[Rfam]
RNA sequence: GGAUUAUCAUAUGACUGACGGAUAAUGUGGAGCCUACCACAUGGAGUAUGAUGAAAUGAAGCCGACCGUCUGGGCGAGAAAA
Numbered sequence: 001g002g003a004u005u006a007u008c009a010u011a012u013g014a015c016u017g018a019c020g021g022a023u024a025a026u027g028u029g030g031a032g033c034c035u036a037c038c039a040c041a042u043g044g045a046g047u048a049u050g051a052u053g054a055a056a057u058g059a060a061g062c063c064g065a066c067c068g069u070c071u072g073g074g075c076g077a078g079a080a081a082a
Stems, first nucleotide, its partner, number of pairs: 004054009015043001017070005027040004061075003
About this RNA: Rfam assigns this 82-nucleotide RNA from Flavonifractor sp. An100 to the family "ZMP/ZTP riboswitch aptamer (pfl RNA motif)". Rfam links the family to the GO terms regulation of purine nucleotide biosynthetic process and one-carbon metabolic process. Taxonomically the source falls in Flavonifractor (Bacteria, Bacillota, Clostridia, Oscillospiraceae). The base pairs follow the family's consensus structure, which is taken from published work. On this family, see Kim et al., Mol Cell 2015: "An ancient riboswitch class in bacteria regulates purine biosynthesis and one-carbon metabolism".